SAM (S-adenosyl methionine) riboswitch aptamer: a 114-nucleotide sequence from Gordonia sihwensis.
Gene Ontology terms of the family: regulation of gene expression and S-adenosylmethionine metabolic process.
Rfam's curators write: SAM-IV is a mRNA element that regulates gene expression via direct sensing of S-adenosylmethionine (SAM or AdoMet). SAM-IV riboswitches share conserved nucleotide positions with the previously described SAM-I riboswitches sequence analysis and molecular recognition experiments suggest that SAM-I and SAM-IV riboswitches share similar ligand binding sites, but have different scaffolds.
Pairs were carried over by alignment from the consensus structure, which is taken from published work.
Lineage of the source: Bacteria > Actinomycetes > Mycobacteriales > Gordoniaceae > Gordonia sihwensis.

RNA sequence: GGUCACGAGAACCGGUGCGAAGCCCUGGCUGGCCGGUCGGCAACCCUCCACCGCGGUGGGGUGCUCCAGGUGACGACCCGGCCGGCGUCGACCGACGUCCGGCAAGUGCGGAGA
Numbered sequence: 001g002g003u004c005a006c007g008a009g010a011a012c013c014g015g016u017g018c019g020a021a022g023c024c025c026u027g028g029c030u031g032g033c034c035g036g037u038c039g040g041c042a043a044c045c046c047u048c049c050a051c052c053g054c055g056g057u058g059g060g061g062u063g064c065u066c067c068a069g070g071u072g073a074c075g076a077c078c079c080g081g082c083c084g085g086c087g088u089c090g091a092c093c094g095a096c097g098u099c100c101g102g103c104a105a106g107u108g109c110g111g112a113g114a
Stems, first nucleotide, its partner, number of pairs: 001078004009038001011037006021030002039065003044061003048056002081103005086097004